[Rfam]
RNA sequence: GUUCUGAUUGGCGGCUCUAACGACAUCGUAGCGAUCAGAAUACAAGCGUUGCUAGUAGGGUAAGUGGAUGUAAUAGCGCAAUAUCGGUGGCGAAGUUAGUGCCGAUUCCACGAAAGACUGACGGGU
Numbered sequence: 001g002u003u004c005u006g007a008u009u010g011g012c013g014g015c016u017c018u019a020a021c022g023a024c025a026u027c028g029u030a031g032c033g034a035u036c037a038g039a040a041u042a043c044a045a046g047c048g049u050u051g052c053u054a055g056u057a058g059g060g061u062a063a064g065u066g067g068a069u070g071u072a073a074u075a076g077c078g079c080a081a082u083a084u085c086g087g088u089g090g091c092g093a094a095g096u097u098a099g100u101g102c103c104g105a106u107u108c109c110a111c112g113a114a115a116g117a118c119u120g121a122c123g124g125g126u
Base pairs, nucleotide, nucleotide: 001041002040003039004038005037006036007035008034009033010032029054030053031052046079047078048077049076050075051074065110066109067108068107083106084105085104086103087102088101095122096121097120098119099118100117